The record is a 371-nucleotide RNA sequence from Leptolyngbyaceae cyanobacterium T60_A2020_046, which matches "Bacterial RNase P class A" in Rfam. Taxonomically the source falls in Leptolyngbyaceae (Bacteria, Bacillati, Cyanobacteriota, Cyanophyceae). By type it is a ribozyme.

RNA sequence: AGAGUUGGCGAGGUGGUUACGGGUUGGCAGUGCCAGCCUGAGGAAAGUCCGGGCUCCCGAAAGACCAAACUUGCUGGGUAACGCCCAGUGCGCGCGAGCGUGAGGAGAGUGCCACAGAAACAUACCGCCGAUGGGGCUUUGGCUCACAGGUAAGGGUGCAAGGGUGCGGUAAGAGCGCACCAGCAGCAUCGAGAGGUGCUGGCUCGGUAAACCCCGGUUGGGAGCAAGGUCGGAGGGGCCAGGGUUGGUCUUUUUCCAGCCCCGUUUUUGGUGUACCGCAUGAGGCGUCUGGUAACAGGCGUCCCAGAUAGAUAACUACCCUCUGGAUUUCGAUUCGGAGAACAGAACCCGGCUUACGUCCGGCUCUUUCC
Numbered sequence: 001a002g003a004g005u006u007g008g009c010g011a012g013g014u015g016g017u018u019a020c021g022g023g024u025u026g027g028c029a030g031u032g033c034c035a036g037c038c039u040g041a042g043g044a045a046a047g048u049c050c051g052g053g054c055u056c057c058c059g060a061a062a063g064a065c066c067a068a069a070c071u072u073g074c075u076g077g078g079u080a081a082c083g084c085c086c087a088g089u090g091c092g093c094g095c096g097a098g099c100g101u102g103a104g105g106a107g108a109g110u111g112c113c114a115c116a117g118a119a120a121c122a123u124a125c126c127g128c129c130g131a132u133g134g135g136g137c138u139u140u141g142g143c144u145c146a147c148a149g150g151u152a153a154g155g156g157u158g159c160a161a162g163g164g165u166g167c168g169g170u171a172a173g174a175g176c177g178c179a180c181c182a183g184c185a186g187c188a189u190c191g192a193g194a195g196g197u198g199c200u201g202g203c204u205c206g207g208u209a210a211a212c213c214c215c216g217g218u219u220g221g222g223a224g225c226a227a228g229g230u231c232g233g234a235g236g237g238g239c240c241a242g243g244g245u246u247g248g249u250c251u252u253u254u255u256c257c258a259g260c261c262c263c264g265u266u267u268u269u270g271g272u273g274u275a276c277c278g279c280a281u282g283a284g285g286c287g288u289c290u291g292g293u294a295a296c297a298g299g300c301g302u303c304c305c306a307g308a309u310a311g312a313u314a315a316c317u318a319c320c321c322u323c324u325g326g327a328u329u330u331c332g333a334u335u336c337g338g339a340g341a342a343c344a345g346a347a348c349c350c351g352g353c354u355u356a357c358g359u360c361c362g363g364c365u366c367u368u369u370c371c
Base pairs, nucleotide, nucleotide: 001367002366003365004364005363006362007361008360012320013319014318015317016316017315018314020040021039022038023037024036025035026034027033028032045355046354047353049352050351051350052349053348054224055223056222057221063256064255068219069218070217072216073215074088075087076086077085078084089103090101091100092099093098104214105213109212110211111208112207113206125155126154127151128150129149132146133145134144135143163181164180165179166178167177168176183203184201185200186199187198188197189196190195228277229276230275238268241265243263247262248261250259251258284303285302286301287300288299289298290297291296